Fluoride riboswitch aptamer (crcB RNA motif): a 63-nucleotide RNA from Pelomicrobium methylotrophicum. The family's consensus secondary structure is taken from published work.
RNA sequence: AUGCGCAGAGGAGAUGGCAUUCCUCCUUUAACCGCCCGCGUGGCUGAUGAUGCCUGCCUUGCA
Numbered sequence: 001a002u003g004c005g006c007a008g009a010g011g012a013g014a015u016g017g018c019a020u021u022c023c024u025c026c027u028u029u030a031a032c033c034g035c036c037c038g039c040g041u042g043g044c045u046g047a048u049g050a051u052g053c054c055u056g057c058c059u060u061g062c063a
Base pairs, nucleotide, nucleotide: 010026011025012024013023016054017053018052019051020050021049034044035043036042
Taxonomically the source falls in Pelomicrobium (Bacteria, Pseudomonadati, Pseudomonadota, Hydrogenophilia).